Shown here is a 176-nucleotide RNA from Leptotrichia shahii, a member of the family "Lysine riboswitch aptamer". Riboswitches are metabolite binding domains within certain messenger RNAs that serve as precision sensors for their corresponding targets. Allosteric rearrangement of mRNA structure is mediated by ligand binding, and this results in modulation of gene expression. This family includes riboswitches that sense lysine in a number of genes involved in lysine metabolism, including lysC. The source organism's lineage runs through Bacteria, Fusobacteriati, Fusobacteriia, Leptotrichiaceae and Leptotrichia. The family's consensus secondary structure is taken from published work.

RNA sequence: UUAUAUGAUAGAGGUGCAGUUAUUAAAAGUAAAUUUACGGAGAAAAGUCGAUUCUGUGAAAUAAGUUGAAAGGAAUAACUGCCGAAGCAUAGGGAUUGACUAUCUUUUUUGCUGGGGCUAUGGAUAAUAUCCAUAGGACUGUCAUUAUCAAGGGAUAAUGGGGAGCUGUCAGAUAU
Numbered sequence: 001u002u003a004u005a006u007g008a009u010a011g012a013g014g015u016g017c018a019g020u021u022a023u024u025a026a027a028a029g030u031a032a033a034u035u036u037a038c039g040g041a042g043a044a045a046a047g048u049c050g051a052u053u054c055u056g057u058g059a060a061a062u063a064a065g066u067u068g069a070a071a072g073g074a075a076u077a078a079c080u081g082c083c084g085a086a087g088c089a090u091a092g093g094g095a096u097u098g099a100c101u102a103u104c105u106u107u108u109u110u111g112c113u114g115g116g117g118c119u120a121u122g123g124a125u126a127a128u129a130u131c132c133a134u135a136g137g138a139c140u141g142u143c144a145u146u147a148u149c150a151a152g153g154g155a156u157a158a159u160g161g162g163g164a165g166c167u168g169u170c171a172g173a174u175a176u
Stems, first nucleotide, its partner, number of pairs: 006171006016082009032067006086113004091108004097102001114140002118136007142161007